[Rfam]
RNA sequence: CCCGCAUCUAGACGAAAAGACCCCGUGGAGCUUUACUAUAACUUCAUAUUGGAGUUUGAUUUAACUUGUGUAGGAUAGGUGGGAGACUAUGAUGCUUAAACGCUAGUUUAAGUGGAGUCGACGUUGAAAUACCACCCUUGUUACGUUGAACUUCUAACUUGUUACCAUGAUCUGGUAAGAGGACAGUGUGUGGUGGGUAGUUUGACUGGGGCGGUCGCCUCCUAAAGGGUAACGGAGGCGUUCAAAGUUACACUCAAUACGGUCAGAAACCGUAUCAUAGAGCAUAAAGGUAGAAGUGUGAUUGACUGUGAGACCUACAAGUCGAGCAGGUGCGAAAGCAGGACUUAGUGAUCCGGCGGUUCUUCGUGGAAAGGCCGUCGCUCAACGGAUAAAAGCUACCCCGGGGAUAACAGGCUUAUCUUUCCCAAGAGAUCACAUCGACGGGAAGGUUUGGCACCUCGAUGUCGGCUCAUCGCAUCCUGGAGCUGGAGUCGGUUCCAAGGGUUGGGCUGUUCGCCCAUUAAAGCGGUACGCGAGCUGGGUUCAAAACGUCGUGAGACAGUUUGGUUCCUAUCUGAUGUGGGCGUU
Numbered sequence: 001c002c003c004g005c006a007u008c009u010a011g012a013c014g015a016a017a018a019g020a021c022c023c024c025g026u027g028g029a030g031c032u033u034u035a036c037u038a039u040a041a042c043u044u045c046a047u048a049u050u051g052g053a054g055u056u057u058g059a060u061u062u063a064a065c066u067u068g069u070g071u072a073g074g075a076u077a078g079g080u081g082g083g084a085g086a087c088u089a090u091g092a093u094g095c096u097u098a099a100a101c102g103c104u105a106g107u108u109u110a111a112g113u114g115g116a117g118u119c120g121a122c123g124u125u126g127a128a129a130u131a132c133c134a135c136c137c138u139u140g141u142u143a144c145g146u147u148g149a150a151c152u153u154c155u156a157a158c159u160u161g162u163u164a165c166c167a168u169g170a171u172c173u174g175g176u177a178a179g180a181g182g183a184c185a186g187u188g189u190g191u192g193g194u195g196g197g198u199a200g201u202u203u204g205a206c207u208g209g210g211g212c213g214g215u216c217g218c219c220u221c222c223u224a225a226a227g228g229g230u231a232a233c234g235g236a237g238g239c240g241u242u243c244a245a246a247g248u249u250a251c252a253c254u255c256a257a258u259a260c261g262g263u264c265a266g267a268a269a270c271c272g273u274a275u276c277a278u279a280g281a282g283c284a285u286a287a288a289g290g291u292a293g294a295a296g297u298g299u300g301a302u303u304g305a306c307u308g309u310g311a312g313a314c315c316u317a318c319a320a321g322u323c324g325a326g327c328a329g330g331u332g333c334g335a336a337a338g339c340a341g342g343a344c345u346u347a348g349u350g351a352u353c354c355g356g357c358g359g360u361u362c363u364u365c366g367u368g369g370a371a372a373g374g375c376c377g378u379c380g381c382u383c384a385a386c387g388g389a390u391a392a393a394a395g396c397u398a399c400c401c402c403g404g405g406g407a408u409a410a411c412a413g414g415c416u417u418a419u420c421u422u423u424c425c426c427a428a429g430a431g432a433u434c435a436c437a438u439c440g441a442c443g444g445g446a447a448g449g450u451u452u453g454g455c456a457c458c459u460c461g462a463u464g465u466c467g468g469c470u471c472a473u474c475g476c477a478u479c480c481u482g483g484a485g486c487u488g489g490a491g492u493c494g495g496u497u498c499c500a501a502g503g504g505u506u507g508g509g510c511u512g513u514u515c516g517c518c519c520a521u522u523a524a525a526g527c528g529g530u531a532c533g534c535g536a537g538c539u540g541g542g543u544u545c546a547a548a549a550c551g552u553c554g555u556g557a558g559a560c561a562g563u564u565u566g567g568u569u570c571c572u573a574u575c576u577g578a579u580g581u582g583g584g585c586g587u588u
Stems, first nucleotide, its partner, number of pairs: 001584008010576003014571001022405004027401002029397005035201004042193002045190004051154010062143004068137001078136005085119003094113008158181003162178006204216004217239006240386001242343002248301006254281002257275006282291002306329004312323003331340003354380007362373002414455003418452001419449007429439002466541001467539004471533001472530005479504002482499006506520005547565004551560003
The family of this 588-nucleotide part of an RNA from Metamycoplasma canadense is "Bacterial large subunit ribosomal RNA". Lineage of the source: Bacteria > Bacillati > Mycoplasmatota > Metamycoplasmataceae > Metamycoplasma. The family's consensus secondary structure is taken from published work. A search with the family's covariance model found it, with a score of 2750 bits. Its family is annotated with ribosome and structural constituent of ribosome in the Gene Ontology.